[Rfam]
RNA sequence: UCCAGAGGCUGGCGCGGAGAGGGCCCACAGUGGACUUGGUGACACUGUAUGCCCUAACCGCUCAGCCGCUGGG
Number, nucleotide and partner (000 for none) at each position: 001u073002c072003c071004a070005g069006a000007g067008g000009c065010u064011g063012g062013c000014g061015c060016g059017g058018a000019g000020a055021g054022g053023g052024c051025c000026c000027a048028c047029a046030g045031u044032g043033g000034a000035c000036u000037u000038g000039g000040u000041g000042a000043c032044a031045c030046u029047g028048u027049a000050u000051g024052c023053c022054c021055u020056a000057a000058c017059c016060g015061c014062u012063c011064a010065g009066c000067c007068g000069c005070u004071g003072g002073g001
RNA: mir-675 microRNA precursor family
Organism: Marmota marmota